[Rfam]
RNA sequence: AAGCCGUUGAGAACCAUUUGAAUCACUACACAGAACUUGAUUCAAAUGGUUCUCACAA
Numbered sequence: 001a002a003g004c005c006g007u008u009g010a011g012a013a014c015c016a017u018u019u020g021a022a023u024c025a026c027u028a029c030a031c032a033g034a035a036c037u038u039g040a041u042u043c044a045a046a047u048g049g050u051u052c053u054c055a056c057a058a
Base pairs, nucleotide, nucleotide: 008055009054010053011052012051013050014049015048016047017046018045019044020043021042022041023040024039025038
Rfam assigns this 58-nucleotide sequence from Pelargonium trifidum to the family "Plastid-ccsA-ndhD-1 3UTR RNA". The family is grouped with related families in Rfam's "Plastid-ccsA_ndhD 3UTR RNA clan". Lineage of the source: Eukaryota > Viridiplantae > Embryophyta > Magnoliopsida > Pelargonium. Rfam describes the family as follows. Plastid-ccsA-ndhD-1 is a non-coding RNA (ncRNA) recognised in plastids. It was found in the three prime untranslated region (3UTR) of ccsA and ndhD genes, its 3UTR location suggests a role in transcript maturation. It is one of the family's seed sequences.